Actino-pnp RNA: an 83-nucleotide RNA sequence from Nocardia sp. SYP-A9097.

[Rfam]
RNA sequence: GUCGGUCUUCGGUAGUGGCUUUUCGGAGCGCAGCAAGAGGAGACGUUUUUCGCGCUGCCGGAGGGCUUCGAUCGAUGACCGCC
Numbered sequence: 001g002u003c004g005g006u007c008u009u010c011g012g013u014a015g016u017g018g019c020u021u022u023u024c025g026g027a028g029c030g031c032a033g034c035a036a037g038a039g040g041a042g043a044c045g046u047u048u049u050u051c052g053c054g055c056u057g058c059c060g061g062a063g064g065g066c067u068u069c070g071a072u073c074g075a076u077g078a079c080c081g082c083c
Base pairs, nucleotide, nucleotide: 001083003081004080005079006078007077009075010074011073012072013071017067018066019065021063022062023061024060025059026058028056